[Rfam]
RNA sequence: AGAGUUUGACGCCAUAGCAGAAGCGCUCAUGGCACAGCCAUGUUAGAUUCCAAUGAGUCUGUGAAUUUUGCU
Numbered sequence: 001a002g003a004g005u006u007u008g009a010c011g012c013c014a015u016a017g018c019a020g021a022a023g024c025g026c027u028c029a030u031g032g033c034a035c036a037g038c039c040a041u042g043u044u045a046g047a048u049u050c051c052a053a054u055g056a057g058u059c060u061g062u063g064a065a066u067u068u069u070g071c072u
Base pairs, nucleotide, nucleotide: 007040008039011038012037016072017071018070019069020068021067022066023035025033044061045060046059047058048057049056050055
The family of this 72-nucleotide RNA from Crocodylus porosus is "Mammalian CPEB3 ribozyme". NCBI's taxonomy places the organism under Eukaryota, Deuterostomia, Amniota, Archosauria, Crocodylus.